[Rfam]
RNA sequence: UGCGUGCUCCGGGGUCGGUGCAAUUCCGAGCCGGCGGUGACAGUCCGCGACCCAGAAGCCUUCGGGUGACUGGUUGACCUGGUGGAACUCCGGGACCGACGGUGAAAGUCCGGAUGGGAGGAUCGCGCA
Numbered sequence: 001u002g003c004g005u006g007c008u009c010c011g012g013g014g015u016c017g018g019u020g021c022a023a024u025u026c027c028g029a030g031c032c033g034g035c036g037g038u039g040a041c042a043g044u045c046c047g048c049g050a051c052c053c054a055g056a057a058g059c060c061u062u063c064g065g066g067u068g069a070c071u072g073g074u075u076g077a078c079c080u081g082g083u084g085g086a087a088c089u090c091c092g093g094g095a096c097c098g099a100c101g102g103u104g105a106a107a108g109u110c111c112g113g114a115u116g117g118g119a120g121g122a123u124c125g126c127g128c129a
Stems, first nucleotide, its partner, number of pairs: 003127004008122003016028003030109002032098002034048004043096002052073002078094005100112003
Rfam assigns this 129-nucleotide RNA from Mumia sp. ZJ1417 to the family "FMN riboswitch aptamer (RFN element)". It scores 90 bits against the family's covariance model. Rfam describes the family as follows. The RFN element is a highly conserved domain that is found frequently in the 5'-untranslated regions of prokaryotic mRNAs that encode for flavin mononucleotide (FMN) biosynthesis and transport proteins.